The record is a 427-nucleotide part of an RNA from Endoreticulatus sp. CHW-2008 Austria, which matches "Microsporidia small subunit ribosomal RNA" in Rfam. Its Rfam clan is "SSU clan". The base pairs follow the family's consensus structure, which is taken from published work. The organism belongs to Endoreticulatus, within Eukaryota.

[Rfam]
RNA sequence: CACCAGGUUGAUUCUGCCUGACGUCCCCGCUAGUCUCUGAGAUUAAGCCAUGCAUGUCUAUGGAACAAGGACGAACAGCUCAGUAAAACUGCGAUGAUUCAGUCUGUCUGUCAAGAUAACCACGCGAAAGUGUGGCUAAGAGGGGACAGAACAAGACGCAGGACUAUCAGUUAGUUGGUAGUGUAAUGGACUACCAAGACGGUGACGGUUGACGGGGAAUGAGGGUUCUAUACCGGAGAGGGAGCCUGAGAGAUAGCUCCCACGUCCAAGGACGGCAGCAGGCGCGAAAAUUGCCCACUGUUUGGAGGAGGCAGUUAUGAGACGUGAGAAAGAGUGCUUGGUAAAGAGAAGCAGGAGAAUUGGAGGGCAAGUUUGGUGCCAGCAGCCGCGGUAAUACCGACUCCAAGAGUGUGUAUGAGAGAUGCUG
Numbered sequence: 001c002a003c004c005a006g007g008u009u010g011a012u013u014c015u016g017c018c019u020g021a022c023g024u025c026c027c028c029g030c031u032a033g034u035c036u037c038u039g040a041g042a043u044u045a046a047g048c049c050a051u052g053c054a055u056g057u058c059u060a061u062g063g064a065a066c067a068a069g070g071a072c073g074a075a076c077a078g079c080u081c082a083g084u085a086a087a088a089c090u091g092c093g094a095u096g097a098u099u100c101a102g103u104c105u106g107u108c109u110g111u112c113a114a115g116a117u118a119a120c121c122a123c124g125c126g127a128a129a130g131u132g133u134g135g136c137u138a139a140g141a142g143g144g145g146a147c148a149g150a151a152c153a154a155g156a157c158g159c160a161g162g163a164c165u166a167u168c169a170g171u172u173a174g175u176u177g178g179u180a181g182u183g184u185a186a187u188g189g190a191c192u193a194c195c196a197a198g199a200c201g202g203u204g205a206c207g208g209u210u211g212a213c214g215g216g217g218a219a220u221g222a223g224g225g226u227u228c229u230a231u232a233c234c235g236g237a238g239a240g241g242g243a244g245c246c247u248g249a250g251a252g253a254u255a256g257c258u259c260c261c262a263c264g265u266c267c268a269a270g271g272a273c274g275g276c277a278g279c280a281g282g283c284g285c286g287a288a289a290a291u292u293g294c295c296c297a298c299u300g301u302u303u304g305g306a307g308g309a310g311g312c313a314g315u316u317a318u319g320a321g322a323c324g325u326g327a328g329a330a331a332g333a334g335u336g337c338u339u340g341g342u343a344a345a346g347a348g349a350a351g352c353a354g355g356a357g358a359a360u361u362g363g364a365g366g367g368c369a370a371g372u373u374u375g376g377u378g379c380c381a382g383c384a385g386c387c388g389c390g391g392u393a394a395u396a397c398c399g400a401c402u403c404c405a406a407g408a409g410u411g412u413g414u415a416u417g418a419g420a421g422a423u424g425c426u427g
Stems, first nucleotide, its partner, number of pairs: 004020005022417003026413001028411004033323005039316002041285001047283003051280003056072002059070001061068001079238003089161005095155001098154002103150007112143001120135006163209003170200003175197008213235003217228004240261006263274004291313001293312003299308001301306001335353005360406006373400004382389002
Rfam's curators put it in the seed alignment.